[Rfam]
This 134-nucleotide sequence from Lacticaseibacillus casei belongs to the Rfam family "DUF3800-I RNA".
Rfam's curators put it in the seed alignment.
Rfam describes the family as follows. Actinobacteria, Firmicutes, Fusobacteria, Proteobacteria (1 example), Tenericutes (2 examples).
By type it is a small RNA.
RNA sequence: UAAUAGUGCGGGUAGGAGUUGAUACUUCUACACCGAGUAAAGUUGGAAAGUGAUUGAAAAAUUAAGCGUACUAUUUUGAAGUACGUCACGCCAGCUUGGAAGAGAUGCGUUGGGCAUCUCUUUUUAUGUGCCUU
Dot-bracket structure: ......(.(((((((((((....)))))))).))).)..((((((....((((((....)))...((((((.........)))))))))..))))))((((((((((.......))))))))))..........